THF (Tetrahydrofolate) riboswitch aptamer: a 99-nucleotide sequence from Oceanotoga teriensis. Gene Ontology term of the family: tetrahydrofolate metabolic process. About the family: Tetrahydrofolate (THF) riboswitch was first reported for Ames et al. as an RNA motif in 5' untranslated (5'-UTR)regions of folate transport and biosynthesis genes in Firmicutes genomes. It scores 61 bits against the family's covariance model. Lineage of the source: Bacteria > Thermotogota > Thermotogae > Petrotogaceae > Oceanotoga.

[Rfam]
RNA sequence: GGCAGAGUAGAUGUCAUGCGUUUUAGUGCUCAGGGAUGGGACGUUGCCCUGUGACGAAAUGCCCUUAAAUGGCUGCGGUUCGACAUCGCGUCCGCUGUC
Numbered sequence: 001g002g003c004a005g006a007g008u009a010g011a012u013g014u015c016a017u018g019c020g021u022u023u024u025a026g027u028g029c030u031c032a033g034g035g036a037u038g039g040g041a042c043g044u045u046g047c048c049c050u051g052u053g054a055c056g057a058a059a060u061g062c063c064c065u066u067a068a069a070u071g072g073c074u075g076c077g078g079u080u081c082g083a084c085a086u087c088g089c090g091u092c093c094g095c096u097g098u099c
Base pairs, nucleotide, nucleotide: 001099002098003097004096005095010087011086012085013084014083015082018079019077020076021075026055027054029053031051032050033049034048035047039093040092041091042090043089061073062072063071
The family's consensus secondary structure is taken from published work.